A member of the RNA family "Archaeal large subunit ribosomal RNA" from Saccharolobus islandicus, 584 nucleotides of a longer RNA.
The literature on the family includes a 2001 paper in Science by Yusupov et al., "Crystal structure of the ribosome at 5.5 A resolution".
[Rfam]
RNA sequence: CUCCCCACACCGAGAGAAGACCCCGUGGAGCUUCACCGCAGCCUGGCGCUGCUCCUCGGGCGCCUAUGCGUAGAGUAGGUGGGAGGGGUCGAACCCAUCCUUUCGGGGAUGGGGGACCCGAAGGUGAAACACCACCCAUGGGUGCUCGAGGAGCUUACCUACCCGUAGGGGUGGGGACAGCGUCAGGUGGGCGGUUCGGCUGGGGCGGCACUCCCGCGAAAAGAUAACACGGGAGCCCAAAGGUCGGCUCAGGCGGUACAGAACGCCGCCGUGGAGUGCAAGGGCAAAAGCCGGCUUGACGAGACCCUCCAAAGUACGGGGUCUCGACGCGAAAGCGCGGCCUAGCGAACGCUCGUGUCCCCCCACGUGGGGGCCGGGCAUGACAGAAAAGUUACCCCGGGGAUAACAGGGUCGUCGCGGGCGAGAGCUCCCAUCGACCCCGCGGUUUGCUACAUCGAUGUCGGCUCUUCCCACCCUGGGGGUGCAGCUGCCCCCAAGGGUAGGGCUGCCCGCCCGUUAAAGGGGAACGUGAGCUGGGUUUAGACCGUCGCGAGACAGGUCGGACUCUAAGGGUGGGGAGUGUG
Numbered sequence: 001c002u003c004c005c006c007a008c009a010c011c012g013a014g015a016g017a018a019g020a021c022c023c024c025g026u027g028g029a030g031c032u033u034c035a036c037c038g039c040a041g042c043c044u045g046g047c048g049c050u051g052c053u054c055c056u057c058g059g060g061c062g063c064c065u066a067u068g069c070g071u072a073g074a075g076u077a078g079g080u081g082g083g084a085g086g087g088g089u090c091g092a093a094c095c096c097a098u099c100c101u102u103u104c105g106g107g108g109a110u111g112g113g114g115g116a117c118c119c120g121a122a123g124g125u126g127a128a129a130c131a132c133c134a135c136c137c138a139u140g141g142g143u144g145c146u147c148g149a150g151g152a153g154c155u156u157a158c159c160u161a162c163c164c165g166u167a168g169g170g171g172u173g174g175g176g177a178c179a180g181c182g183u184c185a186g187g188u189g190g191g192c193g194g195u196u197c198g199g200c201u202g203g204g205g206c207g208g209c210a211c212u213c214c215c216g217c218g219a220a221a222a223g224a225u226a227a228c229a230c231g232g233g234a235g236c237c238c239a240a241a242g243g244u245c246g247g248c249u250c251a252g253g254c255g256g257u258a259c260a261g262a263a264c265g266c267c268g269c270c271g272u273g274g275a276g277u278g279c280a281a282g283g284g285c286a287a288a289a290g291c292c293g294g295c296u297u298g299a300c301g302a303g304a305c306c307c308u309c310c311a312a313a314g315u316a317c318g319g320g321g322u323c324u325c326g327a328c329g330c331g332a333a334a335g336c337g338c339g340g341c342c343u344a345g346c347g348a349a350c351g352c353u354c355g356u357g358u359c360c361c362c363c364c365a366c367g368u369g370g371g372g373g374c375c376g377g378g379c380a381u382g383a384c385a386g387a388a389a390a391g392u393u394a395c396c397c398c399g400g401g402g403a404u405a406a407c408a409g410g411g412u413c414g415u416c417g418c419g420g421g422c423g424a425g426a427g428c429u430c431c432c433a434u435c436g437a438c439c440c441c442g443c444g445g446u447u448u449g450c451u452a453c454a455u456c457g458a459u460g461u462c463g464g465c466u467c468u469u470c471c472c473a474c475c476c477u478g479g480g481g482g483u484g485c486a487g488c489u490g491c492c493c494c495c496a497a498g499g500g501u502a503g504g505g506c507u508g509c510c511c512g513c514c515c516g517u518u519a520a521a522g523g524g525g526a527a528c529g530u531g532a533g534c535u536g537g538g539u540u541u542a543g544a545c546c547g548u549c550g551c552g553a554g555a556c557a558g559g560u561c562g563g564a565c566u567c568u569a570a571g572g573g574u575g576g577g578g579a580g581u582g583u584g
Stems, first nucleotide, its partner, number of pairs: 001580008010572002014567002022401004027397002029393005035195004042187007051154018078136005085119003097110005158175006198211001199209003212234005237340002243295006249275002252270006276285002300326009328337001330335001351379005357374001359373004410451003414448001415445007425435002462537001463535004467529001468526005475500002479494005503515004543561004547556003